[Rfam]
The record is a 139-nucleotide RNA from Eragrostis curvula, which matches "small nucleolar RNA snoR135" in Rfam. Rfam 15.1 lists 837 matches to the family in 220 species. For this family Rfam cites "Mining small RNA sequencing data: a new approach to identify small nucleolar RNAs in Arabidopsis" (Chen and Wu, Nucleic Acids Res, 2009).
RNA sequence: UCAGCAGGAUCGUGUGUAUCGGCUUUGCGCUUUUUCCAUGCGUCUUUUGCUGAAAGUGUUUCCUGCAACAUCAAAUGCGGCAAGUGGGCAAUUGGGUUACGCUUAUCUGCUUUCUCCAACAAUCAUUUUCCUCUCAUGU
Numbered sequence: 001u002c003a004g005c006a007g008g009a010u011c012g013u014g015u016g017u018a019u020c021g022g023c024u025u026u027g028c029g030c031u032u033u034u035u036c037c038a039u040g041c042g043u044c045u046u047u048u049g050c051u052g053a054a055a056g057u058g059u060u061u062c063c064u065g066c067a068a069c070a071u072c073a074a075a076u077g078c079g080g081c082a083a084g085u086g087g088g089c090a091a092u093u094g095g096g097u098u099a100c101g102c103u104u105a106u107c108u109g110c111u112u113u114c115u116c117c118a119a120c121a122a123u124c125a126u127u128u129u130c131c132u133c134u135c136a137u138g139u
Stems, first nucleotide, its partner, number of pairs: 004066005009060001014043006077133001079131002082128006092119003